[Rfam]
RNA sequence: AAUGUUACAAUUUUAUUUUGUGACCGACACUAACGGGUAAAAUUAAACGGAUAAAUAUUUUCCUUUUUCUGAAUUUUUAUUUUCAAAAUUUACUCGUUUUUGCGAUCACAAAUUAUGAAAUUGUAAUUA
Numbered sequence: 001a002a003u004g005u006u007a008c009a010a011u012u013u014u015a016u017u018u019u020g021u022g023a024c025c026g027a028c029a030c031u032a033a034c035g036g037g038u039a040a041a042a043u044u045a046a047a048c049g050g051a052u053a054a055a056u057a058u059u060u061u062c063c064u065u066u067u068u069c070u071g072a073a074u075u076u077u078u079a080u081u082u083u084c085a086a087a088a089u090u091u092a093c094u095c096g097u098u099u100u101u102g103c104g105a106u107c108a109c110a111a112a113u114u115a116u117g118a119a120a121u122u123g124u125a126a127u128u129a
Stems, first nucleotide, its partner, number of pairs: 004127007013118003017112007025104002028102002032098010
Rfam assigns this 129-nucleotide sequence from Lucilia cuprina to the family "mir-274 microRNA precursor family".